[Rfam]
RNA sequence: AAGAACAGUGAUGAACUCUAUACAGACCUGUAAUGAUAAUGCGGAGAUGAUCGCAUUACUUAAUGAACAUCUAAGGGGCUGAGUUCUG
Numbered sequence: 001a002a003g004a005a006c007a008g009u010g011a012u013g014a015a016c017u018c019u020a021u022a023c024a025g026a027c028c029u030g031u032a033a034u035g036a037u038a039a040u041g042c043g044g045a046g047a048u049g050a051u052c053g054c055a056u057u058a059c060u061u062a063a064u065g066a067a068c069a070u071c072u073a074a075g076g077g078g079c080u081g082a083g084u085u086c087u088g
Stems, first nucleotide, its partner, number of pairs: 002087005
Shown here is an 88-nucleotide RNA sequence from Carex littledalei, a member of the family "Small nucleolar RNA SNORD25". The family's RNA type in Rfam is C/D-box small nucleolar RNA.